[Rfam]
RNA: ZMP/ZTP riboswitch aptamer (pfl RNA motif)
Organism: Streptomyces sp. WAC00469
Nucleotides: 105
Base pairs, nucleotide, nucleotide: 004071006069007068008067009066010065011064012063015060016059017093018092019091020090021089043056044055045054046053084098085097086096
Number, partner (000 for none) and nucleotide at each position: 001000g002000g003000c004071c005000a006069g007068g008067g009066c010065c011064g012063u013000g014000a015060c016059u017093g018092g019091c020090g021089c022000g023000c024000u025000g026000g027000a028000c029000c030000a031000u032000g033000g034000g035000u036000c037000c038000g039000a040000g041000g042000g043056a044055u045054g046053g047000g048000a049000g050000a051000g052000a053046c054045c055044a056043u057000c058000g059016g060015g061000g062000a063012g064011c065010g066009g067008c068007u069006c070000c071004g072000a073000c074000g075000g076000g077000a078000a079000g080000a081000a082000g083000u084098g085097c086096c087000g088000u089021g090020c091019g092018c093017c094000u095000g096086g097085g098084c099000c100000g101000u102000a103000c104000c105000g